This 28-nucleotide sequence belongs to the Rfam family "Histone 3' UTR stem-loop". The base pairs follow the family's consensus structure, which is taken from published work. Rfam's curators put it in the seed alignment.
[Rfam]
RNA sequence: GGCCAAAGGCCCUUUUCAGGGCCACCCC
Numbered sequence: 001g002g003c004c005a006a007a008g009g010c011c012c013u014u015u016u017c018a019g020g021g022c023c024a025c026c027c028c
Stems, first nucleotide, its partner, number of pairs: 008023006
Dot-bracket structure: .......((((((....)))))).....
By type it is a cis-regulatory element. About the family: The mRNAs of metazoan histone genes lack a poly-A tail. 3' end processing occurs at a site between a highly conserved stem-loop (modelled by this family) and a purine rich region around 20 nts downstream (the histone downstream element, or HDE). The stem-loop is bound by a 31 kDa stem-loop binding protein (SLBP - also termed the histone hairpin binding protein, or HBP). Together with U7 snRNA binding of the HDE, SLBP binding nucleate s the formation of the processing complex. The histone 3' UTR stem-loop is also involved in nucleocytoplasmic transport of the mRNA, and in stability regulation and translation efficiency in the cytoplasm.